[Rfam]
The family of this 77-nucleotide RNA sequence from Anaerostipes sp. 494a is "pemK RNA".
RNA sequence: AUAAUGAUACUUCUGCAUGGUCAUGGAGGUGAGUGCAGCCUGUCAUAAGAAUGAGGGGAGCCUAAAAAGGGUUAUGA
Numbered sequence: 001a002u003a004a005u006g007a008u009a010c011u012u013c014u015g016c017a018u019g020g021u022c023a024u025g026g027a028g029g030u031g032a033g034u035g036c037a038g039c040c041u042g043u044c045a046u047a048a049g050a051a052u053g054a055g056g057g058g059a060g061c062c063u064a065a066a067a068a069g070g071g072u073u074a075u076g077a
Stems, first nucleotide, its partner, number of pairs: 012074001013038006039058003043054003059073003